The record is a 241-nucleotide RNA sequence from Stackebrandtia albiflava, which matches "Actinobacteria sRNA Ms_IGR-5" in Rfam.
The pairing is the family consensus, mapped onto this sequence.
The match comes from Rfam's covariance-model search (85 bits).
RNA sequence: ACACGUGAAAGGAGGUGGUCCGAGAGUGAAGUCUUUCAGGACUCGUGAGGUGGUUGCGCGUUAGUCGUCGCGCACCGUUCCAUGACAACGGACCGGCGCGGUUACCGCCGACGGCGGAGCGGCCCAUAGGGCUUCUCGACGGCGAGCGAAUACCACGCGACCACCGGACCCGCGAGUGUCGCGAUCUAGUCCAGCGCGACGAAGGAGAUCUCGGUCUCCUUCACCUCGCGGGUUUUUCCAU
Numbered sequence: 001a002c003a004c005g006u007g008a009a010a011g012g013a014g015g016u017g018g019u020c021c022g023a024g025a026g027u028g029a030a031g032u033c034u035u036u037c038a039g040g041a042c043u044c045g046u047g048a049g050g051u052g053g054u055u056g057c058g059c060g061u062u063a064g065u066c067g068u069c070g071c072g073c074a075c076c077g078u079u080c081c082a083u084g085a086c087a088a089c090g091g092a093c094c095g096g097c098g099c100g101g102u103u104a105c106c107g108c109c110g111a112c113g114g115c116g117g118a119g120c121g122g123c124c125c126a127u128a129g130g131g132c133u134u135c136u137c138g139a140c141g142g143c144g145a146g147c148g149a150a151u152a153c154c155a156c157g158c159g160a161c162c163a164c165c166g167g168a169c170c171c172g173c174g175a176g177u178g179u180c181g182c183g184a185u186c187u188a189g190u191c192c193a194g195c196g197c198g199a200c201g202a203a204g205g206a207g208a209u210c211u212c213g214g215u216c217u218c219c220u221u222c223a224c225c226u227c228g229c230g231g232g233u234u235u236u237u238c239c240a241u
Stems, first nucleotide, its partner, number of pairs: 015057005059148004064143002067140004072135001074133001166235011180198004185193001
Source information
The source organism's lineage runs through Bacteria, Bacillati, Actinomycetota, Actinomycetes and Stackebrandtia.